RNA: ribosomal frameshift site
RNA sequence: GGGCCUUCUGGUCGUGUUCUUGGCCACCCAGGAGGUCCUUCGCAAGAGGUGGACAGCCAAGA
Numbered sequence: 001g002g003g004c005c006u007u008c009u010g011g012u013c014g015u016g017u018u019c020u021u022g023g024c025c026a027c028c029c030a031g032g033a034g035g036u037c038c039u040u041c042g043c044a045a046g047a048g049g050u051g052g053a054c055a056g057c058c059a060a061g062a
Stems, first nucleotide, its partner, number of pairs: 001038011018062007